[Rfam]
A member of the RNA family "Bacterial RNase P class A" from [Eubacterium] infirmum, 346 nucleotides long. The family's consensus secondary structure is taken from published work.
RNA sequence: AGGGAAGAUCAGACGGUCGCGUGCCAUUGGCAUGAGGAAAGUCCGGGCUCCAUAGGGCAAGAAUGCCGGAUAACGUCCGGCGUAGGUAACUAUAGGGAAAGUGCAACAGAAACAUUCCGCCGAAACAGUUAGGCUGUGGUAAGGUUGAAAUGGUGAGGUAAGAGCUCACCGGAGUCAUGGAGACAUGGCUGCCGUGUAAACCCCAUUCGGAGCAAGGUCGAAAUUGAGCACCAAAUGCAGCGGCCCGUUGCAGCUCAGGAGGUGGACCGCAUGAGCGUGCAGUAAUGUUACGCCUUAGAUAGAUGAUCGUCUAAUACAGAACCCGGCUUAUAGAUCUGCCCCUUAG
Numbered sequence: 001a002g003g004g005a006a007g008a009u010c011a012g013a014c015g016g017u018c019g020c021g022u023g024c025c026a027u028u029g030g031c032a033u034g035a036g037g038a039a040a041g042u043c044c045g046g047g048c049u050c051c052a053u054a055g056g057g058c059a060a061g062a063a064u065g066c067c068g069g070a071u072a073a074c075g076u077c078c079g080g081c082g083u084a085g086g087u088a089a090c091u092a093u094a095g096g097g098a099a100a101g102u103g104c105a106a107c108a109g110a111a112a113c114a115u116u117c118c119g120c121c122g123a124a125a126c127a128g129u130u131a132g133g134c135u136g137u138g139g140u141a142a143g144g145u146u147g148a149a150a151u152g153g154u155g156a157g158g159u160a161a162g163a164g165c166u167c168a169c170c171g172g173a174g175u176c177a178u179g180g181a182g183a184c185a186u187g188g189c190u191g192c193c194g195u196g197u198a199a200a201c202c203c204c205a206u207u208c209g210g211a212g213c214a215a216g217g218u219c220g221a222a223a224u225u226g227a228g229c230a231c232c233a234a235a236u237g238c239a240g241c242g243g244c245c246c247g248u249u250g251c252a253g254c255u256c257a258g259g260a261g262g263u264g265g266a267c268c269g270c271a272u273g274a275g276c277g278u279g280c281a282g283u284a285a286u287g288u289u290a291c292g293c294c295u296u297a298g299a300u301a302g303a304u305g306a307u308c309g310u311c312u313a314a315u316a317c318a319g320a321a322c323c324c325g326g327c328u329u330a331u332a333g334a335u336c337u338g339c340c341c342c343u344u345a346g
Base pairs, nucleotide, nucleotide: 002341003340004339006337007336008335009334010333011331012311013310014309015308016307017306018305020034021033022032023031024030025029039329040328041327043326044325045324046323047322048212049211050210051209056246057245061208062207063206064205065204066080067079068078069077070076081095082093083092084091085090096203097202101201102200103197104196105195117144118143119140120139121138122137124135126133152170153169154168155167156166157165171192172190174189175188176187177186178185179184216268217267218266219265224258225257226256227255228254229253237251238250239249240248241247275293276292277291278290279288280287281286
About the family: Ribonuclease P (RNase P) is a ubiquitous endoribonuclease, found in archaea, bacteria and eukarya as well as chloroplasts and mitochondria. The organism belongs to [Eubacterium] infirmum, within Bacteria.